Overview
A member of the RNA family "Small nucleolar RNA SNORA31" from Myotis brandtii, 127 nucleotides long.
[Rfam]
RNA sequence: CUGCAUCCACUGAUAGACCUUGAACAACCUGUUGUUCUUUUGGUUUGCACUGGGAUGUGAAAGAAAAAUAUCCCUGCGCUUUCUGUCUGUCUUUAUGGUGGCCCAGAUUGAAUAAGAAAGAAAGAAA
Numbered sequence: 001c002u003g004c005a006u007c008c009a010c011u012g013a014u015a016g017a018c019c020u021u022g023a024a025c026a027a028c029c030u031g032u033u034g035u036u037c038u039u040u041u042g043g044u045u046u047g048c049a050c051u052g053g054g055a056u057g058u059g060a061a062a063g064a065a066a067a068a069u070a071u072c073c074c075u076g077c078g079c080u081u082u083c084u085g086u087c088u089g090u091c092u093u094u095a096u097g098g099u100g101g102c103c104c105a106g107a108u109u110g111a112a113u114a115a116g117a118a119a120g121a122a123a124g125a126a127a
Stems, first nucleotide, its partner, number of pairs: 002059007011049002014047006022037006071119001074116002079110001082107004087101005
Rfam's curators write: ACA31 (SNORA31) belongs to the H/ACA class of snoRNAs which are thought to guide the sites of modification of uridines to pseudouridines. ACA31 is predicted to guide the pseudouridylation of U3713 in 28S rRNA and U218 in 18S rRNA. This family includes the mouse homologue snoMBI-161. The organism belongs to Myotis, within Eukaryota. The base pairs follow the family's consensus structure, which was predicted with RNAalifold. A reference for the family is Huttenhofer et al. (2001), "RNomics: an experimental approach that identifies 201 candidates for novel, small, non-messenger RNAs in mouse", EMBO J. It scores 103 bits against the family's covariance model. Gene Ontology terms of the family: RNA processing and nucleolus.